[Rfam]
RNA sequence: ACGCCCUGCCUCGUGAUCGUCUUCUCACCCUUCACGGCGGCGGCGGAAAGAAGGAGACCCCCCGCGAGGACGUGACUCGCGGGGGUCUCCC
Numbered sequence: 001a002c003g004c005c006c007u008g009c010c011u012c013g014u015g016a017u018c019g020u021c022u023u024c025u026c027a028c029c030c031u032u033c034a035c036g037g038c039g040g041c042g043g044c045g046g047a048a049a050g051a052a053g054g055a056g057a058c059c060c061c062c063c064g065c066g067a068g069g070a071c072g073u074g075a076c077u078c079g080c081g082g083g084g085g086u087c088u089c090c091c
Stems, first nucleotide, its partner, number of pairs: 002045002005043002008041003011037001013035004019029001053090007061083008
Notes:
sodF sRNA: a 91-nucleotide RNA from Streptomyces sp. BK239. Taxonomically the source falls in Streptomyces (Bacteria, Actinomycetota, Actinomycetes, Kitasatosporales). By type it is a small RNA. On this family, see Kim et al., Nucleic Acids Res 2014: "Inverse regulation of Fe- and Ni-containing SOD genes by a Fur family regulator Nur through small RNA processed from 3'UTR of the sodF mRNA".